[Rfam]
RNA: Small Cajal body specific RNA 4
Organism: Corythaixoides concolor
RNA sequence: CCUGGAGGACUAAUCAGACUGAGUCUGAAGAGUGAGGCUCAGAUGAUGGCAGCCUCCUAAAAGAAAAGGGAUGGAGAGAGCGGUCCCGCUUACAGACAGCAAAGGGCUGACUGUGCCAUCCGACACUU
Number, nucleotide and partner (000 for none) at each position: 001c000002c000003u059004g057005g056006a055007g054008g053009a000010c000011u000012a000013a000014u000015c000016a000017g044018a000019c042020u000021g040022a039023g038024u037025c036026u035027g000028a000029a000030g000031a000032g000033u000034g000035a026036g025037g024038c023039u022040c021041a000042g019043a000044u017045g000046a000047u000048g000049g000050c000051a000052g000053c008054c007055u006056c005057c004058u000059a003060a000061a000062a000063g000064a000065a000066a000067a000068g121069g120070g119071a000072u000073g000074g000075a000076g000077a000078g000079a112080g111081c109082g108083g107084u106085c105086c104087c000088g000089c000090u000091u101092a000093c099094a000095g000096a000097c000098a000099g093100c000101a091102a000103a000104g086105g085106g084107c083108u082109g081110a000111c080112u079113g000114u000115g000116c000117c000118a000119u070120c069121c068122g000123a000124c000125a000126c000127u000128u000